[Rfam]
RNA sequence: UGUGUCAGUGAUGAGACCAUGGAACACUGCGUCAGGCGUGGCGCCCGAUUCGCAUGAGGAAAUUUUCCAUGCUGCCUUCCUUCUGAGAACACA
Numbered sequence: 001u002g003u004g005u006c007a008g009u010g011a012u013g014a015g016a017c018c019a020u021g022g023a024a025c026a027c028u029g030c031g032u033c034a035g036g037c038g039u040g041g042c043g044c045c046c047g048a049u050u051c052g053c054a055u056g057a058g059g060a061a062a063u064u065u066u067c068c069a070u071g072c073u074g075c076c077u078u079c080c081u082u083c084u085g086a087g088a089a090c091a092c093a
Base pairs, nucleotide, nucleotide: 001093002092003091004090005089